Nucleotides: 080
Stems, first nucleotide, its partner, number of pairs: 002079005008073001011029004020066005031048001032042004053072005
Number, partner (000 for none) and nucleotide at each position: 001000a002079g003078c004077a005076u006075u007000u008073g009000a010000a011029g012028u013027a014026g015000a016000g017000a018000u019000u020066g021065u022064g023063c024062u025000g026014c027013u028012a029011c030000a031048c032042a033041c034040c035039c036000u037000c038000u039035g040034g041033g042032u043000c044000a045000a046000a047000a048031g049000a050000a051000a052000u053072g054071c055070g056069g057068g058000a059000a060000g061000g062024g063023g064022c065021a066020c067000a068057c069056c070055c071054g072053c073008c074000u075006g076005a077004u078003g079002c080000a